RNA: Small nucleolar RNA snoR100
Nucleotides: 116
Base pairs, nucleotide, nucleotide: 012025013024014023015022043099044098045097046096047095053089054088055087057081058080059079
Number, partner (000 for none) and nucleotide at each position: 001000g002000u003000a004000u005000g006000a007000a008000g009000g010000u011000a012025g013024c014023a015022u016000g017000g018000u019000g020000a021000u022015g023014u024013g025012c026000a027000c028000a029000g030000a031000u032000a033000g034000u035000g036000a037000a038000u039000c040000a041000c042000a043099a044098g045097g046096u047095c048000g049000u050000c051000a052000u053089g054088u055087c056000u057081g058080c059079u060000u061000g062000c063000u064000c065000u066000g067000a068000u069000g070000c071000c072000a073000u074000c075000u076000u077000u078000u079059g080058g081057c082000u083000u084000u085000c086000u087055g088054a089053u090000u091000u092000g093000c094000a095047g096046g097045c098044c099043u100000g101000g102000a103000u104000u105000a106000a107000a108000c109000c110000u111000a112000c113000a114000u115000u116000u